[Rfam]
This 94-nucleotide RNA sequence belongs to the Rfam family "L4-Archaeoglobi ribosomal protein leades". The sequence is in the family's curated seed alignment. On this family, see Eckert and Weinberg, BMC Microbiol 2020: "Discovery of 20 novel ribosomal leader candidates in bacteria and archaea". The base pairs follow the family's consensus structure, which is taken from published work. It is annotated as a cis-regulatory leader.
RNA sequence: CUGAUGGCGGCGUCUGGGUGGAAAUCGGAAUCAAUCGCCCUAUUCCCCUUCGUACCGGUGGUAAAUACUCGGUGGGGCAGCGCCUAAAUGUCAG
Numbered sequence: 001c002u003g004a005u006g007g008c009g010g011c012g013u014c015u016g017g018g019u020g021g022a023a024a025u026c027g028g029a030a031u032c033a034a035u036c037g038c039c040c041u042a043u044u045c046c047c048c049u050u051c052g053u054a055c056c057g058g059u060g061g062u063a064a065a066u067a068c069u070c071g072g073u074g075g076g077g078c079a080g081c082g083c084c085u086a087a088a089u090g091u092c093a094g
Base pairs, nucleotide, nucleotide: 001094002093003092004091005090009084010083011082012081013080016040017039018038024035025034027032045077046076047075048074050072051071052070053067